[Rfam]
RNA sequence: GCAGGAGCCUUCAGUGUUGCCCUGUGUGUAUUUGACAAGCUGAGUUCGACACUCAGUGUGGCAGUGUCAGUUUGUCAAAUAUACAAAGUGCGGCAUUUGUCCAG
Number, nucleotide and partner (000 for none) at each position: 001g000002c000003a000004g000005g000006a000007g000008c000009c000010u000011u000012c000013a000014g000015u000016g000017u000018u000019g000020c090021c000022c088023u087024g000025u000026g084027u000028g082029u081030a080031u079032u078033u077034g076035a075036c074037a073038a072039g071040c070041u069042g000043a000044g000045u000046u000047c000048g068049a067050c066051a065052c000053u000054c064055a000056g000057u000058g000059u000060g000061g000062c000063a000064g054065u051066g050067u049068c048069a041070g040071u039072u038073u037074g036075u035076c034077a033078a032079a031080u030081a029082u028083a000084c026085a000086a000087a023088g022089u000090g020091c000092g000093g000094c000095a000096u000097u000098u000099g000100u000101c000102c000103a000104g000
RNA: mir-223 microRNA precursor family